[Rfam]
Nucleotides: 108
Stems, first nucleotide, its partner, number of pairs: 007083007015068006022059003035054006069093004073088004
Number, partner (000 for none) and nucleotide at each position: 001000u002000u003000u004000u005000u006000g007083g008082g009081a010080u011079a012078c013077u014000g015068g016067g017066c018065g019064c020063g021000g022059a023058u024057c025000c026000u027000c028000c029000u030000c031000c032000u033000c034000c035054g036053g037052c038051u039050g040049u041000u042000c043000u044000c045000c046000u047000u048000c049040a050039c051038a052037g053036c054035u055000a056000u057024g058023a059022u060000c061000c062000a063020u064019g065018c066017g067016c068015c069093g070092c071091a072090c073088a074087g075086g076085c077013a078012g079011u080010g081009u082008c083007c084000c085076g086075c087074u088073u089000c090072g091071u092070g093069u094000g095000c096000a097000a098000a099000a100000g101000g102000g103000c104000u105000c106000g107000u108000c
The family of this 108-nucleotide RNA sequence is "IMPDH RNA". By type it is a small RNA.